Rfam assigns this 180-nucleotide RNA from Pseudomonas sp. 21C1 to the family "Pseudomonas sRNA P1". On this family, see Livny et al., Nucleic Acids Res 2006: "Identification of 17 Pseudomonas aeruginosa sRNAs and prediction of sRNA-encoding genes in 10 diverse pathogens using the bioinformatic tool sRNAPredict2". The organism belongs to Pseudomonas, within Bacteria. Rfam classes the family as a non-coding RNA gene.
[Rfam]
RNA sequence: GCACCCAAUUUAUUGCUGUUAUAGGUUUUGAUCGAGCUUAGCCUUGUUCAUUUUUUUACACAACAACCAUGUAAAAAAUCAAACACACCCCGCUGAGCACCGCGCCACUCCCGGCGUCGCCGCCGCUUACAGCGCCCUGAAACGCCCUAAAAAUGGCCACCAAGCCCCGUUUUAGGGCAG
Numbered sequence: 001g002c003a004c005c006c007a008a009u010u011u012a013u014u015g016c017u018g019u020u021a022u023a024g025g026u027u028u029u030g031a032u033c034g035a036g037c038u039u040a041g042c043c044u045u046g047u048u049c050a051u052u053u054u055u056u057u058a059c060a061c062a063a064c065a066a067c068c069a070u071g072u073a074a075a076a077a078a079u080c081a082a083a084c085a086c087a088c089c090c091c092g093c094u095g096a097g098c099a100c101c102g103c104g105c106c107a108c109u110c111c112c113g114g115c116g117u118c119g120c121c122g123c124c125g126c127u128u129a130c131a132g133c134g135c136c137c138u139g140a141a142a143c144g145c146c147c148u149a150a151a152a153a154u155g156g157c158c159a160c161c162a163a164g165c166c167c168c169g170u171u172u173u174a175g176g177g178c179a180g
Stems, first nucleotide, its partner, number of pairs: 024101003028097001034093001036091001041089001044085001046084003052078008164178002167175001